[Rfam]
RNA sequence: AUGAGGGUAACUGAGUGUGGGAAGGAAGCGUGGAGCAUAAAUCAUGAGCCGAUGGACAAGAAUCGCAUAGAAGGCGUUACCGAUCAGGGCGAGCGGGCAUGAAACCGCGAAGCUCUUGUGGUCAAGGAUCGGUGGCGUAAAUGCGGCGGUUGUGUGAUGAAGGAGUGCGGC
Number, nucleotide and partner (000 for none) at each position: 001a016002u015003g000004a000005g012006g011007g000008u000009a000010a000011c006012u005013g000014a000015g002016u001017g000018u000019g000020g000021g000022a000023a000024g000025g000026a000027a000028g171029c170030g000031u000032g000033g000034a000035g000036c163037a000038u000039a000040a000041a158042u157043c156044a155045u154046g153047a151048g150049c149050c148051g147052a000053u000054g000055g000056a000057c000058a000059a000060g000061a000062a000063u146064c145065g144066c143067a142068u141069a000070g000071a000072a000073g000074g138075c137076g136077u000078u134079a133080c132081c131082g130083a129084u128085c000086a000087g115088g114089g113090c112091g000092a000093g108094c107095g106096g105097g000098c000099a000100u000101g000102a000103a000104a000105c096106c095107g094108c093109g000110a000111a000112g090113c089114u088115c087116u000117u000118g000119u000120g000121g000122u000123c000124a000125a000126g000127g000128a084129u083130c082131g081132g080133u079134g078135g000136c076137g075138u074139a000140a000141a068142u067143g066144c065145g064146g063147c051148g050149g049150u048151u047152g000153u046154g045155u044156g043157a042158u041159g000160a000161a000162g000163g036164a000165g000166u000167g000168c000169g000170g029171c028
Background: Shown here is a 171-nucleotide RNA sequence from Massilia cavernae, a member of the family "Group II catalytic intron D1-D4-3". The match comes from Rfam's covariance-model search (113 bits). Taxonomically the source falls in Massilia (Bacteria, Pseudomonadati, Betaproteobacteria, Burkholderiales).